[Rfam]
RNA: Group II catalytic intron D1-D4-3
Nucleotides: 168
Base pairs, nucleotide, nucleotide: 002011004009024167026165031160036154037153038152039151040150041146042145043144044143045142057141058140059139060138061137062136068133069132070131074128075127076126079123081109082108083107084106087102088101
Number, partner (000 for none) and nucleotide at each position: 001000c002011c003000a004009u005000a006000u007000g008000a009004a010000a011002g012000u013000g014000g015000c016000g017000a018000a019000a020000a021000a022000a023000g024167u025000c026165g027000g028000c029000a030000g031160u032000a033000a034000a035000a036154u037153c038152c039151c040150a041146g042145u043144c044143u045142g046000a047000c048000g049000a050000a051000c052000a053000g054000a055000a056000a057141c058140u059139g060138c061137a062136u063000a064000u065000a066000a067000g068133g069132c070131a071000u072000a073000a074128a075127u076126a077000c078000a079123c080000c081109g082108g083107a084106u085000g086000a087102g088101u089000c090000a091000g092000c093000a094000a095000a096000g097000c098000a099000a100000a101088a102087c103000a104000a105000a106084a107083u108082c109081c110000a111000a112000u113000g114000c115000u116000a117000u118000c119000c120000g121000a122000g123079g124000c125000u126076u127075a128074u129000g130000g131070u132069g133068u134000a135000a136062a137061u138060g139059c140058a141057g142045c143044a144043g145042g146041u147000a148000u149000a150040u151039g152038g153037g154036a155000a156000g157000a158000a159000a160031g161000g162000a163000c164000g165026c166000a167024a168000g